[Rfam]
RNA sequence: UAGAAGAAUCUGUUAAGCUCAGGAGGGAUAGCGCCAUCGAUGAUCUUCAACCUUUGCUUCUCAAUUUCGAUCUUCGGUGACGCUAUCUAUCCUGAGUUUCAUCGGUUCAUCUU
Dot-bracket structure: .........(.....(((((((((.((((((((.(...........................................).)))))))).))))))))).....).........
Shown here is a 113-nucleotide RNA sequence from Hibiscus syriacus, a member of the family "MIR390 microRNA precursor family". The source organism's lineage runs through Eukaryota, Viridiplantae, Gunneridae, Malvales and Hibiscus. Rfam links the family to the GO terms RISC complex and miRNA-mediated post-transcriptional gene silencing. A search with the family's covariance model found it, with a score of 98 bits. A reference for the family is Gustafson et al. (2005), "ASRP: the Arabidopsis Small RNA Project Database", Nucleic Acids Res.